[Rfam]
RNA sequence: GAUGGUUUGGCCCAUCCCAUCGGCAUUCAGGUGCAGGUGGAAACCACCUUAUGCGGCAUUGGUUAAGAGUCACUGUCGUGAGCGAUAAGGGAAAGGCAAACACAAUGAUUUGUCAGGU
Numbered sequence: 001g002a003u004g005g006u007u008u009g010g011c012c013c014a015u016c017c018c019a020u021c022g023g024c025a026u027u028c029a030g031g032u033g034c035a036g037g038u039g040g041a042a043a044c045c046a047c048c049u050u051a052u053g054c055g056g057c058a059u060u061g062g063u064u065a066a067g068a069g070u071c072a073c074u075g076u077c078g079u080g081a082g083c084g085a086u087a088a089g090g091g092a093a094a095g096g097c098a099a100a101c102a103c104a105a106u107g108a109u110u111u112g113u114c115a116g117g118u
Stems, first nucleotide, its partner, number of pairs: 001016005017040005023034004045117001047090006053079002056076003060072004095114006
This 118-nucleotide RNA from Saccharobesus litoralis belongs to the Rfam family "Group II catalytic intron D1-D4-2". NCBI's taxonomy places the organism under Bacteria, Pseudomonadati, Gammaproteobacteria, Alteromonadaceae, Saccharobesus. Group II introns are found in rRNA, tRNA and mRNA of organelles in fungi, plants and protists, and also in mRNA in bacteria. On this family, see Bonen and Vogel, Trends Genet 2001: "The ins and outs of group II introns". The family has 144 seed sequences and 1,231 matches in Rfam 15.1. Pairs were carried over by alignment from the consensus structure.